[Rfam]
RNA sequence: UCGCUGGGCAGUGAUGACUCUUUCCCCGUCAGAGCGACAGUGUUGACCAUCGCUGUCCAAGCCAGGCCGUGUCUGACCCCAGCGA
Numbered sequence: 001u002c003g004c005u006g007g008g009c010a011g012u013g014a015u016g017a018c019u020c021u022u023u024c025c026c027c028g029u030c031a032g033a034g035c036g037a038c039a040g041u042g043u044u045g046a047c048c049a050u051c052g053c054u055g056u057c058c059a060a061g062c063c064a065g066g067c068c069g070u071g072u073c074u075g076a077c078c079c080c081a082g083c084g085a
Stems, first nucleotide, its partner, number of pairs: 001085008